[Rfam]
RNA sequence: AAUCAAUGUAGAGGUUGCAAUUCUCAGGAGUACAUAUUUUAGCAGACAUGCCGAGAUGAUAUGGAAAGGGAGCGUUGCCGAAAUGUGGUAUGCGGUGGCAUAUCAUGUUGGGGAUACGUAAAACAUACGUAUAACUGUCAUGGAAAUGGAGUACUACAUCUUUU
Numbered sequence: 001a002a003u004c005a006a007u008g009u010a011g012a013g014g015u016u017g018c019a020a021u022u023c024u025c026a027g028g029a030g031u032a033c034a035u036a037u038u039u040u041a042g043c044a045g046a047c048a049u050g051c052c053g054a055g056a057u058g059a060u061a062u063g064g065a066a067a068g069g070g071a072g073c074g075u076u077g078c079c080g081a082a083a084u085g086u087g088g089u090a091u092g093c094g095g096u097g098g099c100a101u102a103u104c105a106u107g108u109u110g111g112g113g114a115u116a117c118g119u120a121a122a123a124c125a126u127a128c129g130u131a132u133a134a135c136u137g138u139c140a141u142g143g144a145a146a147u148g149g150a151g152u153a154c155u156a157c158a159u160c161u162u163u164u
Stems, first nucleotide, its partner, number of pairs: 006159006017078005023072003033063006082109012110136002114132007138149004
Lysine riboswitch aptamer: a 164-nucleotide RNA from Aliicoccus persicus. Riboswitches are metabolite binding domains within certain messenger RNAs that serve as precision sensors for their corresponding targets.